[Rfam]
RNA sequence: UCAUUGGUUGAGCUGCAACGGAGUGCUUCGCGCACGGGCUGAAUGGACAU
Numbered sequence: 001u002c003a004u005u006g007g008u009u010g011a012g013c014u015g016c017a018a019c020g021g022a023g024u025g026c027u028u029c030g031c032g033c034a035c036g037g038g039c040u041g042a043a044u045g046g047a048c049a050u
Stems, first nucleotide, its partner, number of pairs: 008041001011040004023035004
RNA: ssnA RNA